[Rfam]
RNA sequence: GAGGGAUGCGAGACUGGUGUCUCUCCUGGUCUGCAAAACCAGUGAUGCACGAAGAUUUCGUGCAGUGGGUUCAAUUCCCACCAUCCCUC
Numbered sequence: 001g002a003g004g005g006a007u008g009c010g011a012g013a014c015u016g017g018u019g020u021c022u023c024u025c026c027u028g029g030u031c032u033g034c035a036a037a038a039c040c041a042g043u044g045a046u047g048c049a050c051g052a053a054g055a056u057u058u059c060g061u062g063c064a065g066u067g068g069g070u071u072c073a074a075u076u077c078c079c080a081c082c083a084u085c086c087c088u089c
Stems, first nucleotide, its partner, number of pairs: 001089007008081001010023005025044001026042005066080004
Selenocysteine transfer RNA: an 89-nucleotide RNA sequence from Thermodesulfovibrio yellowstonii. Its Rfam clan is "tRNA clan". It scores 59 bits against the family's covariance model.